About this RNA:
A member of the RNA family "terC RNA" from Pseudogemmobacter humi, 56 nucleotides long. It is annotated as a cis-regulatory element. A search with the family's covariance model found it, with a score of 63 bits.
RNA sequence: UCUGCGGGCCGGGCCCCUCUGGCGCCAGUUCUCUGGCGUGAUGUCGGACCGCAUCG
Numbered sequence: 001u002c003u004g005c006g007g008g009c010c011g012g013g014c015c016c017c018u019c020u021g022g023c024g025c026c027a028g029u030u031c032u033c034u035g036g037c038g039u040g041a042u043g044u045c046g047g048a049c050c051g052c053a054u055c056g
Base pairs, nucleotide, nucleotide: 006050007049009047010046011045012044022039023038024037025036026035027034028033